The record is a 207-nucleotide sequence from Candidatus Mellornella promiscua, which matches "permuted transfer-messenger RNA" in Rfam. A reference for the family is Laslett et al. (2002), "BRUCE: a program for the detection of transfer-messenger RNA genes in nucleotide sequences", Nucleic Acids Res. By type it is a non-coding RNA gene. The family's consensus secondary structure is taken from published work. Rfam's curators put it in the seed alignment.

[Rfam]
Nucleotides: 207
Base pairs, nucleotide, nucleotide: 001121002120003119004118005117015110016109026100028098030097031096032095036052037051038050039049040048053082054081055080056079057078058077059076122135123134124133
Number, partner (000 for none) and nucleotide at each position: 001121g002120a003119c004118a005117a006000u007000a008000a009000a010000u011000g012000a013000u014000a015110u016109u017000u018000a019000a020000u021000a022000a023000u024000a025000g026100a027000u028098u029000u030097a031096u032095g033000g034000a035000c036052c037051c038050g039049g040048g041000g042000g043000c044000g045000g046000u047000a048040c049039c050038c051037g052036g053082c054081a055080c056079u057078u058077c059076c060000a061000u062000u063000u064000u065000u066000a067000u068000g069000u070000u071000a072000u073000u074000u075000g076059g077058g078057g079056a080055g081054u082053g083000a084000a085000u086000u087000a088000g089000u090000u091000u092000c093000g094000a095032c096031g097030u098028a099000c100026u101000u102000u103000g104000a105000a106000a107000a108000u109016g110015a111000a112000u113000a114000u115000u116000u117005u118004u119003g120002u121001c122135c123134g124133u125000a126000a127000u128000a129000u130000a131000c132000a133124a134123c135122g136000u137000u138000a139000a140000a141000g142000u143000u144000u145000a146000u147000a148000a149000a150000u151000u152000u153000a154000a155000g156000u157000g158000c159000a160000a161000a162000u163000a164000a165000u166000u167000u168000a169000a170000a171000g172000a173000u174000g175000c176000a177000c178000g179000a180000c181000a182000a183000u184000a185000a186000a187000u188000c189000u190000a191000a192000a193000g194000u195000a196000a197000u198000g199000g200000u201000u202000g203000c204000a205000u206000a207000a